The record is a 72-nucleotide RNA from Monodelphis domestica, which matches "mir-181 microRNA precursor family" in Rfam.
The sequence is in the family's curated seed alignment.
Gene Ontology terms of the family: RISC complex and miRNA-mediated post-transcriptional gene silencing.
The family's consensus secondary structure was predicted with PFOLD.
RNA sequence: UGGGGGAACAUUCAACGCUGUCGGUGAGUUUGAGCAGCUGAAGGCAAACCAUCGACCGUUGAGUGGACCCCG
Numbered sequence: 001u002g003g004g005g006g007a008a009c010a011u012u013c014a015a016c017g018c019u020g021u022c023g024g025u026g027a028g029u030u031u032g033a034g035c036a037g038c039u040g041a042a043g044g045c046a047a048a049c050c051a052u053c054g055a056c057c058g059u060u061g062a063g064u065g066g067a068c069c070c071c072g
Stems, first nucleotide, its partner, number of pairs: 003071001009065009020056007028049004